[Rfam]
RNA sequence: UCGCAUCCGCCAACCGGUUCAGCCGUGUCGCGGAAGGUUUCCUCAACCAGCUGACGCUCCCUCCAGGGGGGCAGAAAGUAGCG
Numbered sequence: 001u002c003g004c005a006u007c008c009g010c011c012a013a014c015c016g017g018u019u020c021a022g023c024c025g026u027g028u029c030g031c032g033g034a035a036g037g038u039u040u041c042c043u044c045a046a047c048c049a050g051c052u053g054a055c056g057c058u059c060c061c062u063c064c065a066g067g068g069g070g071g072c073a074g075a076a077a078g079u080a081g082c083g
Base pairs, nucleotide, nucleotide: 002083003082004081006034007033008032009031010030015025016024017023018022036048037047038046039045050079051078052077056072057071058070059069060068061067062066

Rfam assigns this 83-nucleotide RNA from Ramlibacter sp. Leaf400 to the family "SucA RNA motif".
For this family Rfam cites "Identification of 22 candidate structured RNAs in bacteria using the CMfinder comparative genomics pipeline" (Weinberg et al., Nucleic Acids Res, 2007).
The family's RNA type in Rfam is cis-regulatory element.